Rfam assigns this 52-nucleotide RNA from Ovis aries to the family "mir-1302 microRNA precursor family". Gene Ontology terms of the family: RISC complex and miRNA-mediated post-transcriptional gene silencing. The source organism's lineage runs through Eukaryota, Sarcopterygii, Mammalia, Eutheria and Ovis. A search with the family's covariance model found it, with a score of 63 bits. Rfam 15.1 lists 16,160 matches to the family in 135 species.
[Rfam]
RNA sequence: CUUUGAGUAUAAGUAUGCCCCUUGCAAUAUCUGGGACAUACUUAUGCUAAAA
Numbered sequence: 001c002u003u004u005g006a007g008u009a010u011a012a013g014u015a016u017g018c019c020c021c022u023u024g025c026a027a028u029a030u031c032u033g034g035g036a037c038a039u040a041c042u043u044a045u046g047c048u049a050a051a052a
Stems, first nucleotide, its partner, number of pairs: 006048007014040003019035003